[Rfam]
RNA sequence: CUCUACCAAAUAGUCAGAUGCUGACAGCUCAAGGGCUGUCUCCCAGUACAUGGUAGGUAAAGGACUGCUUUUCCUUGCCAUAGGCAAAAAAUUAAAACUGUGCACACACCGAUAGUAGGCAUAUCCGAAUUCCGUGUGUGC
Numbered sequence: 001c002u003c004u005a006c007c008a009a010a011u012a013g014u015c016a017g018a019u020g021c022u023g024a025c026a027g028c029u030c031a032a033g034g035g036c037u038g039u040c041u042c043c044c045a046g047u048a049c050a051u052g053g054u055a056g057g058u059a060a061a062g063g064a065c066u067g068c069u070u071u072u073c074c075u076u077g078c079c080a081u082a083g084g085c086a087a088a089a090a091a092u093u094a095a096a097a098c099u100g101u102g103c104a105c106a107c108a109c110c111g112a113u114a115g116u117a118g119g120c121a122u123a124u125c126c127g128a129a130u131u132c133c134g135u136g137u138g139u140g141c
Stems, first nucleotide, its partner, number of pairs: 003056006013049002020043001023040007077085003102141008111132002118126002
The family of this 141-nucleotide sequence is "RT-14 RNA". The sequence is in the family's curated seed alignment.